[Rfam]
RNA sequence: CCCUCGUGGGCUGUGUUAAUCCACAUCAGAAAUCUCCUUUAAUGAGGAGUGAUAUAGUUACGAACUCUCUAGAGUCAUAAUUAGAGCAAACUAAUUGAAGUUGUGUUUUGACACACUUUCCAAAUUCACGGGUACCGCAUGACAUAUUCACAACACUACUGCUGCACAGCCAUGGCGACAGCAAAAUCAUUAGGCUAAUAACGCUUAUUUGCAUUCCUAUCAUGCCAGCAGCACGCCGUUAAAUACUGCUCCAACCAGCGCCGUUCGCUCUGAAAGUUUCCACUGAAAGAUAUUAACAGUAAUUAUGAGUGCUUUAGUGGAACCUCUAACGCUGAGGA
Number, nucleotide and partner (000 for none) at each position: 001c000002c000003c000004u000005c000006g000007u000008g000009g000010g000011c000012u000013g000014u331015g330016u329017u328018a327019a000020u321021c320022c319023a318024c317025a000026u000027c000028a313029g312030a000031a000032a000033u000034c049035u048036c047037c046038u045039u044040u000041a000042a000043u000044g039045a038046g037047g036048a035049g034050u000051g000052a000053u000054a306055u305056a304057g303058u302059u301060a300061c299062g000063a000064a000065c074066u073067c072068u000069c000070u000071a000072g067073a066074g065075u000076c000077a000078u000079a000080a000081u000082u000083a000084g262085a000086g261087c260088a000089a000090a000091c000092u000093a000094a000095u000096u000097g119098a118099a117100g116101u000102u115103g114104u113105g112106u111107u000108u000109u000110g000111a106112c105113a104114c103115a102116c100117u099118u098119u097120c000121c000122a000123a000124a000125u000126u000127c000128a000129c000130g000131g237132g236133u000134a000135c231136c000137g000138c000139a000140u000141g000142a000143c000144a000145u000146a000147u000148u000149c000150a000151c000152a000153a000154c000155a000156c000157u000158a000159c000160u177161g176162c175163u174164g173165c000166a000167c000168a000169g000170c000171c000172a000173u164174g163175g162176c161177g160178a000179c000180a000181g225182c224183a223184a000185a000186a000187u000188c000189a000190u000191u000192a000193g000194g212195c211196u000197a209198a208199u207200a206201a000202c000203g000204c000205u000206u200207a199208u198209u197210u000211g195212c194213a000214u000215u000216c000217c000218u000219a000220u000221c000222a000223u183224g182225c181226c000227a000228g000229c000230a000231g135232c000233a000234c000235g000236c132237c131238g000239u000240u000241a000242a000243a000244u000245a000246c000247u000248g000249c000250u000251c000252c000253a000254a000255c000256c000257a000258g000259c000260g087261c086262c084263g000264u000265u000266c000267g000268c000269u000270c000271u000272g000273a000274a000275a000276g000277u000278u000279u000280c000281c000282a000283c000284u000285g000286a000287a000288a000289g000290a000291u000292a000293u000294u000295a000296a000297c000298a000299g061300u060301a059302a058303u057304u056305a055306u054307g000308a000309g000310u000311g000312c029313u028314u000315u000316a000317g024318u023319g022320g021321a020322a000323c000324c000325u000326c000327u018328a017329a016330c015331g014332c000333u000334g000335a000336g000337g000338a000
A member of the RNA family "ncRNA Repressor of NFAT (nuclear factor of activated T cells)" from Patagioenas fasciata, 338 nucleotides long. A search with the family's covariance model found it, with a score of 324 bits. Pairs were carried over by alignment from the consensus structure. Rfam classes the family as a non-coding RNA gene. NCBI's taxonomy places the organism under Eukaryota, Metazoa, Bilateria, Sauria, Patagioenas fasciata.